[Rfam]
RNA sequence: GUCGGGAGGGCGACGAAUAGAAGACCCCGCAAGGGGGAAUAAGUCCGCGGUUGUUGUAGCCGUUUCGAACCUCCCGACACCCCUAC
Dot-bracket structure: (((((((((..(((.(........(((......)))...)..))).(((((.......)))))......)))))))))........
Numbered sequence: 001g002u003c004g005g006g007a008g009g010g011c012g013a014c015g016a017a018u019a020g021a022a023g024a025c026c027c028c029g030c031a032a033g034g035g036g037g038a039a040u041a042a043g044u045c046c047g048c049g050g051u052u053g054u055u056g057u058a059g060c061c062g063u064u065u066c067g068a069a070c071c072u073c074c075c076g077a078c079a080c081c082c083c084u085a086c
Stems, first nucleotide, its partner, number of pairs: 001078009012045003016040001025036003047063005